[Rfam]
RNA sequence: UGGAGCUGGUACAUGACCUGUGCCAGAGUAGUAAGUAAUUACUAUUAAAAACUUCACUAUAUGCUGGAAAUACCUAAAGCCUUUAGGUACUAUAUAAUUUUAAUAAUUCUAUAAGUAAAAAUUUUAAAGGAUACUACAAUGGGCAAUCAGCAGAAACCAAAAUUUACUUAUGGCAAGCAUAAAAGUAGGAUCCUCAGAGACUAAACGUGAAGCUCCUAGUCUUUUUUAAUUAAAAAAGAAGAAUAAGAGGAUGAAGAUAUAGUCCAAUAUACAUAUGAAAGUAUAUA
Numbered sequence: 001u002g003g004a005g006c007u008g009g010u011a012c013a014u015g016a017c018c019u020g021u022g023c024c025a026g027a028g029u030a031g032u033a034a035g036u037a038a039u040u041a042c043u044a045u046u047a048a049a050a051a052c053u054u055c056a057c058u059a060u061a062u063g064c065u066g067g068a069a070a071u072a073c074c075u076a077a078a079g080c081c082u083u084u085a086g087g088u089a090c091u092a093u094a095u096a097a098u099u100u101u102a103a104u105a106a107u108u109c110u111a112u113a114a115g116u117a118a119a120a121a122u123u124u125u126a127a128a129g130g131a132u133a134c135u136a137c138a139a140u141g142g143g144c145a146a147u148c149a150g151c152a153g154a155a156a157c158c159a160a161a162a163u164u165u166a167c168u169u170a171u172g173g174c175a176a177g178c179a180u181a182a183a184a185g186u187a188g189g190a191u192c193c194u195c196a197g198a199g200a201c202u203a204a205a206c207g208u209g210a211a212g213c214u215c216c217u218a219g220u221c222u223u224u225u226u227u228a229a230u231u232a233a234a235a236a237a238g239a240a241g242a243a244u245a246a247g248a249g250g251a252u253g254a255a256g257a258u259a260u261a262g263u264c265c266a267a268u269a270u271a272c273a274u275a276u277g278a279a280a281g282u283a284u285a286u287a
Base pairs, nucleotide, nucleotide: 006026007025008024009023010022011021012020013019033039052212053211054210055209057207062152063151064150065149066148067147073142074141157189158188163183164182165181166180197265199264200263201262202261203260214251215250216249217248220245222243273284274283275282276281

Group I catalytic intron: a 287-nucleotide RNA sequence from Rhodonia placenta. From the family's description: Group I catalytic introns are large self-splicing ribozymes. They catalyse their own excision from mRNA, tRNA and rRNA precursors in a wide range of organisms. It scores 54 bits against the family's covariance model. For this family Rfam cites "Self-splicing of group I introns" (Cech, Annu Rev Biochem, 1990).